[Rfam]
Mason-Pfizer monkey virus packaging signal: a 287-nucleotide sequence from Molossus molossus. The base pairs follow the family's consensus structure, which was predicted with PFOLD. On this family, see Mustafa et al., Virus Res 2004: "Mutational analysis of the predicted secondary RNA structure of the Mason-Pfizer monkey virus packaging signal". Gene Ontology term of the family: viral genome packaging. Rfam's curators write: This family represents a group of sequences that are related to the Mason-Pfizer monkey virus (MPMV) packaging signal. The packaging signal is located in the 5' UTR and is required for specific RNA encapsidation. Rfam classes the family as a cis-regulatory element.
RNA sequence: UGGCACCCAAAGUGGGGCUCCAGCACAGGGAAUCCAGUGAAGGACGCCGUUCGAGUGGCCGGCAGAAAGGAAAGCAAAGAAAAAGAAAGUAAAAGAAAAGAGGGAACGACGUGGGAACCUGCUGCGUCUGCACCCCUCGGGUAAGUAAACGGCGAUUAUGGGUCAAGCAUUGAGCCAAGAUAAGAUGUUCGUUGAAGGACUAGGAAAGGCUAUCAAGGCAUGAGGAGUAAAGGUGAAAAUUAAGCAUUUGUGUCAGUAUUUUGAUUAUAUUAAGGAAGUUUGCCCUU
Dot-bracket structure: .....(((...(((.........))).)))....((.(...............).))..........................................(((((.....(((((.......)))))......)).))).......(.(.(..((....)).)).)......(.(((...............................)))..).......(((((.((..(((((.........)))))......)).)))))........((((........))))
The match comes from Rfam's covariance-model search (94 bits).